[Rfam]
RNA sequence: ACAGAAAACGGGGGGAACUCGCUCGAGUUGAGAAGGUAAAACCUGACCCUUUGAACCUGUCGGUUAAUACCGAAGUAGGGAACGUGCAUUGAGUUUUCG
Number, nucleotide and partner (000 for none) at each position: 001a000002c000003a000004g000005a000006a000007a000008a085009c084010g083011g050012g049013g048014g047015g000016a044017a028018c027019u026020c025021g000022c000023u000024c000025g020026a019027g018028u017029u000030g000031a000032g000033a000034a000035g043036g042037u041038a000039a000040a000041a037042c036043c035044u016045g000046a000047c014048c013049c012050u011051u000052u000053g000054a000055a000056c079057c078058u077059g076060u073061c072062g071063g070064u000065u000066a000067a000068u000069a000070c063071c062072g061073a060074a000075g000076u059077a058078g057079g056080g000081a000082a000083c010084g009085u008086g000087c000088a000089u000090u000091g000092a000093g000094u000095u000096u000097u000098c000099g000
This 99-nucleotide RNA from Caproiciproducens sp. NJN-50 belongs to the Rfam family "TPP riboswitch aptamer (THI element)".
Pairs were carried over by alignment from the consensus structure, which is taken from published work.
NCBI's taxonomy places the organism under Bacteria, Bacillota, Eubacteriales, Acutalibacteraceae, Caproiciproducens.